This 61-nucleotide RNA sequence from Ziziphus jujuba belongs to the Rfam family "Plastid-psbN 5UTR RNA". The family's RNA type in Rfam is cis-regulatory element. A search with the family's covariance model found it, with a score of 71 bits. For this family Rfam cites "The primary transcriptome of barley chloroplasts: numerous noncoding RNAs and the dominating role of the plastid-encoded RNA polymerase" (Zhelyazkova et al., Plant Cell, 2012). Taxonomically the source falls in Ziziphus (Eukaryota, Viridiplantae, Pentapetalae, Paliureae). The base pairs follow the family's consensus structure, which was predicted with LocARNA.
[Rfam]
RNA sequence: UGCAAUACGCAUCAAAGGAGUAGUUUCCCACCCAGGAGUUACUUUACUGUAUUCUGAAUUC
Numbered sequence: 001u002g003c004a005a006u007a008c009g010c011a012u013c014a015a016a017g018g019a020g021u022a023g024u025u026u027c028c029c030a031c032c033c034a035g036g037a038g039u040u041a042c043u044u045u046a047c048u049g050u051a052u053u054c055u056g057a058a059u060u061c
Stems, first nucleotide, its partner, number of pairs: 017045011